A member of the RNA family "Acido-Lenti-1 RNA" from Desulfonema magnum, 46 nucleotides long.
RNA sequence: GUCAGCAAUGAAUUGCCGGGCUGUUUUCAGCCGUCCCUUCGGGACU
Number, nucleotide and partner (000 for none) at each position: 001g000002u019003c018004a000005g016006c015007a014008a013009u000010g000011a000012a000013u008014u007015g006016c005017c000018g003019g002020g000021c000022u000023g000024u000025u000026u000027u000028c000029a000030g000031c000032c000033g045034u044035c043036c042037c041038u000039u000040c000041g037042g036043g035044a034045c033046u000
The family's RNA type in Rfam is small RNA.